Record summary: The record is a 99-nucleotide RNA from Saccharibacillus brassicae, which matches "Purine riboswitch aptamer" in Rfam. The base pairs follow the family's consensus structure, which is taken from published work. A search with the family's covariance model found it, with a score of 52 bits.
RNA sequence: UAGAGUAAGACGAGUUGACAUUGUAUAACCUCAAUAAGACGGUUUGAGGGUAUCUACCGGGAACCAUAUCUCCCGACUACAAAGUCGCGCCGAAGGCGC
Dot-bracket structure: .................((.(((((...((((((.........))))))........(((((........)))))..))))).))..............